[Rfam]
RNA: mir-46/mir-47/mir-281 microRNA precursor family
RNA sequence: AAGGGAGCUUUCUGGUGACAGUUCGAUUUUGAACUCUUACUGUCAUGGAGGCGCUCUCUUCA
Numbered sequence: 001a002a003g004g005g006a007g008c009u010u011u012c013u014g015g016u017g018a019c020a021g022u023u024c025g026a027u028u029u030u031g032a033a034c035u036c037u038u039a040c041u042g043u044c045a046u047g048g049a050g051g052c053g054c055u056c057u058c059u060u061c062a
Stems, first nucleotide, its partner, number of pairs: 001060004006055003011049004017044003021040002